Description:
Rfam assigns this 128-nucleotide RNA from Hibiscus syriacus to the family "MIR396 microRNA precursor family". Taxonomically the source falls in Hibiscus (Eukaryota, Gunneridae, rosids, Malvales). A reference for the family is Jones-Rhoades and Bartel (2004), "Computational identification of plant microRNAs and their targets, including a stress-induced miRNA", Mol Cell.
RNA sequence: CUCUGUGUUCUUCCACAGCUUUCUUGAACUGCAACUUCGUCUUAGAUCCUUCUUUCUUUACUGUUAGUUGUUGUGCGUAUAUAAGCGGUGCUGUUGCGGUUCAAUAAAGCUGCGGGAAGAUACUGAUA
Numbered sequence: 001c002u003c004u005g006u007g008u009u010c011u012u013c014c015a016c017a018g019c020u021u022u023c024u025u026g027a028a029c030u031g032c033a034a035c036u037u038c039g040u041c042u043u044a045g046a047u048c049c050u051u052c053u054u055u056c057u058u059u060a061c062u063g064u065u066a067g068u069u070g071u072u073g074u075g076c077g078u079a080u081a082u083a084a085g086c087g088g089u090g091c092u093g094u095u096g097c098g099g100u101u102c103a104a105u106a107a108a109g110c111u112g113c114g115g116g117a118a119g120a121u122a123c124u125g126a127u128a
Base pairs, nucleotide, nucleotide: 003125005123006122007121013115014114017111018110019109020108021107022106024104025103026102027101029099030098031097032096033095034094035093
About this RNA
It scores 82 bits against the family's covariance model.